[Rfam]
RNA: Fluoride riboswitch aptamer (crcB RNA motif)
RNA sequence: AUACUUAAAGGUGAUGGUGCUCACCUAAUUGAACCGCCCUUAAAAGCUGAUAGCGCCUGCCCAAUA
Numbered sequence: 001a002u003a004c005u006u007a008a009a010g011g012u013g014a015u016g017g018u019g020c021u022c023a024c025c026u027a028a029u030u031g032a033a034c035c036g037c038c039c040u041u042a043a044a045a046g047c048u049g050a051u052a053g054c055g056c057c058u059g060c061c062c063a064a065u066a
Stems, first nucleotide, its partner, number of pairs: 010025004016057006036047002